A member of the RNA family "mir-9223 microRNA precursor family" from Myotis lucifugus, 75 nucleotides long. The match comes from Rfam's covariance-model search (54 bits). The source organism's lineage runs through Eukaryota, Eumetazoa, Tetrapoda, Mammalia and Myotis.
RNA sequence: UGCAGUUCUUGAGUGACGCACCCAGAACCAGAGAGGAGGGAGCCUGAUUCUGGGGUGCGUCACCUGAGAACCGCC
Numbered sequence: 001u002g003c004a005g006u007u008c009u010u011g012a013g014u015g016a017c018g019c020a021c022c023c024a025g026a027a028c029c030a031g032a033g034a035g036g037a038g039g040g041a042g043c044c045u046g047a048u049u050c051u052g053g054g055g056u057g058c059g060u061c062a063c064c065u066g067a068g069a070a071c072c073g074c075c
Stems, first nucleotide, its partner, number of pairs: 002074002005071007013063005019057005024051004029046003